[Rfam]
RNA: SAM riboswitch aptamer (S box leader)
RNA sequence: CUCUUAUCCAGAGCGGCGGAGGGACUGGCCCGAUGAUGCCCGGCAACCUGAUUGUUAUCGAGACAAUAAAGGUGCUAAUUCCUGCAGACACAUUGUUUCUGGCAGAUGAGAG
Number, nucleotide and partner (000 for none) at each position: 001c112002u111003c110004u109005u108006a107007u106008c105009c000010a000011g000012a000013g041014c000015g040016g039017c038018g000019g000020a000021g031022g030023g029024a000025c084026u000027g082028g081029c023030c022031c021032g000033a000034u000035g000036a000037u000038g017039c016040c015041c013042g076043g075044c074045a073046a000047c072048c071049u068050g067051a000052u065053u000054g000055u000056u000057a000058u000059c000060g000061a000062g000063a000064c000065a052066a000067u050068a049069a000070a000071g048072g047073u045074g044075c043076u042077a000078a000079u000080u104081c028082c027083u000084g025085c101086a100087g099088a098089c000090a096091c000092a000093u000094u000095g000096u090097u000098u088099c087100u086101g085102g000103c000104a080105g008106a007107u006108g005109a004110g003111a002112g001